The family of this 97-nucleotide sequence from Vanilla planifolia is "MIR535 microRNA precursor family". Pairs were carried over by alignment from the consensus structure, which was predicted with RNAalifold. The source organism's lineage runs through Eukaryota, Streptophytina, Orchidaceae, Vanilloideae and Vanilla.
[Rfam]
RNA sequence: CGAAGUGUAUGACAACGAGAGGGAGCACUCCAGUACACAUCCAUGACCACCAUCAAUGGCAGCAGACUAGCGUGCUCUCUCUCGUUGUCAAAGCAUC
Numbered sequence: 001c002g003a004a005g006u007g008u009a010u011g012a013c014a015a016c017g018a019g020a021g022g023g024a025g026c027a028c029u030c031c032a033g034u035a036c037a038c039a040u041c042c043a044u045g046a047c048c049a050c051c052a053u054c055a056a057u058g059g060c061a062g063c064a065g066a067c068u069a070g071c072g073u074g075c076u077c078u079c080u081c082u083c084g085u086u087g088u089c090a091a092a093g094c095a096u097c
Stems, first nucleotide, its partner, number of pairs: 010090005016084002020080002023077001025075004030070001032068003